The record is a 72-nucleotide RNA sequence from Phytomonospora endophytica, which matches "tRNA" in Rfam. Lineage of the source: Bacteria > Actinomycetota > Actinomycetes > Micromonosporales > Phytomonospora.

RNA sequence: GGCGGGAUGGCCGAGUGGCUUAGGCAAGGGCCUGCAAAGCCCUGUACGCGGGUUCGAUUCCCGCUCCCGCCU
Dot-bracket structure: (((((((..(((..........))).(((((.......)))))....(((((.......)))))))))))).